This 138-nucleotide RNA sequence from Leucobacter sp. cx-87 belongs to the Rfam family "FMN riboswitch aptamer (RFN element)".
The RFN element is a highly conserved domain that is found frequently in the 5'-untranslated regions of prokaryotic mRNAs that encode for flavin mononucleotide (FMN) biosynthesis and transport proteins.
Lineage of the source: Bacteria > Bacillati > Actinomycetes > Microbacteriaceae > Leucobacter.
Nucleotides: 138
Base pairs, nucleotide, nucleotide: 003136004135005134006133007132009130010129016028017027018026032090033089034048035047036046037045043088044087051066052065053064070086071085072084073083074082092121093120094119
Number, partner (000 for none) and nucleotide at each position: 001000g002000u003136g004135u005134g006133u007132u008000c009130c010129c011000g012000g013000g014000g015000u016028c017027g018026g019000u020000g021000a022000g023000a024000a025000u026018c027017c028016g029000a030000a031000c032090c033089g034048g035047c036046g037045g038000u039000g040000a041000a042000a043088g044087u045037c046036c047035g048034c049000g050000a051066g052065c053064c054000c055000u056000g057000c058000c059000u060000g061000c062000a063000g064053g065052g066051u067000u068000g069000a070086g071085c072084u073083g074082g075000u076000g077000a078000a079000a080000u081000u082074c083073c084072a085071g086070c087044a088043c089033c090032g091000a092121c093120g094119g095000u096000g097000a098000u099000g100000g101000g102000u103000g104000c105000c106000u107000u108000g109000g110000c111000g112000c113000c114000c115000g116000a117000g118000u119094c120093c121092g122000g123000a124000u125000g126000a127000g128000a129010g130009g131000a132007a133006g134005c135004a136003c137000g138000g

The base pairs follow the family's consensus structure, which is taken from published work.